MIR2629 microRNA precursor family: a 72-nucleotide RNA from Medicago truncatula. The organism belongs to Medicago, within Eukaryota.
RNA sequence: CAAAUUCAUGUUCCUCGGCAGUUAACUGCAGCCGAUUUUUUUAGAAUUCGGCAGUUAACUGUCGAUGGAUAU
Number, nucleotide and partner (000 for none) at each position: 001c000002a000003a000004a000005u000006u000007c000008a000009u000010g000011u000012u068013c067014c000015u065016c064017g063018g062019c061020a060021g059022u058023u057024a056025a055026c054027u053028g052029c051030a000031g000032c000033c000034g000035a000036u000037u000038u000039u000040u000041u000042u000043a000044g000045a000046a000047u000048u000049c000050g000051g029052c028053a027054g026055u025056u024057a023058a022059c021060u020061g019062u018063c017064g016065a015066u000067g013068g012069a000070u000071a000072u000